[Rfam]
RNA: S10-Clostridia ribosomal protein leader
RNA sequence: GACAUACGAUGAAUUGGGAGAUUGCUGUACUAGAUACAGGGAACUUCCAAGGAGAAUGUCCGAUUCUAAGAAACCGGGCGACAA
Numbered sequence: 001g002a003c004a005u006a007c008g009a010u011g012a013a014u015u016g017g018g019a020g021a022u023u024g025c026u027g028u029a030c031u032a033g034a035u036a037c038a039g040g041g042a043a044c045u046u047c048c049a050a051g052g053a054g055a056a057u058g059u060c061c062g063a064u065u066c067u068a069a070g071a072a073a074c075c076g077g078g079c080g081a082c083a084a
Stems, first nucleotide, its partner, number of pairs: 014050003018047003025039005057083004064078003